[Rfam]
RNA sequence: CCGUACGGGCAGCAGCCCGUGCGGACCCUGACACCGGUACCUGAUACGGCCGGUGCAG
Numbered sequence: 001c002c003g004u005a006c007g008g009g010c011a012g013c014a015g016c017c018c019g020u021g022c023g024g025a026c027c028c029u030g031a032c033a034c035c036g037g038u039a040c041c042u043g044a045u046a047c048g049g050c051c052g053g054u055g056c057a058g
Stems, first nucleotide, its partner, number of pairs: 001024009028058003032055007
RNA: L17-Actino-Proteobacteria ribosomal protein leader
Organism: Streptomyces sp. CNH287